RNA sequence: AAAGUAAGGGGAGCAAUAACAAAACUCUUGUUCUAUCAAGAGGACGUUAUUGCUCCUUUUC
Numbered sequence: 001a002a003a004g005u006a007a008g009g010g011g012a013g014c015a016a017u018a019a020c021a022a023a024a025c026u027c028u029u030g031u032u033c034u035a036u037c038a039a040g041a042g043g044a045c046g047u048u049a050u051u052g053c054u055c056c057u058u059u060u061c
Stems, first nucleotide, its partner, number of pairs: 006059003010056009025042006

Background: The record is a 61-nucleotide sequence, which matches "Plastid-psbA-4 3UTR RNA" in Rfam. On this family, see Richter et al., Plant Commun 2023: "Retrograde signaling in plants: A critical review focusing on the GUN pathway and beyond". By type it is a cis-regulatory element.